[Rfam]
RNA sequence: GGGGACCUUCGGGGCCCUAUAACCACAGGCGGGGCAACAUCCCUGCCGCACAGCUAAACGGAAGACAGACA
Numbered sequence: 001g002g003g004g005a006c007c008u009u010c011g012g013g014g015c016c017c018u019a020u021a022a023c024c025a026c027a028g029g030c031g032g033g034g035c036a037a038c039a040u041c042c043c044u045g046c047c048g049c050a051c052a053g054c055u056a057a058a059c060g061g062a063a064g065a066c067a068g069a070c071a
Stems, first nucleotide, its partner, number of pairs: 001018004006014003028047007

Shown here is a 71-nucleotide RNA sequence from Sulfitobacter geojensis, a member of the family "L2-Alphaproteobacteria ribosomal protein leader". Pairs were carried over by alignment from the consensus structure, which is taken from published work. On this family, see Eckert and Weinberg, BMC Microbiol 2020: "Discovery of 20 novel ribosomal leader candidates in bacteria and archaea".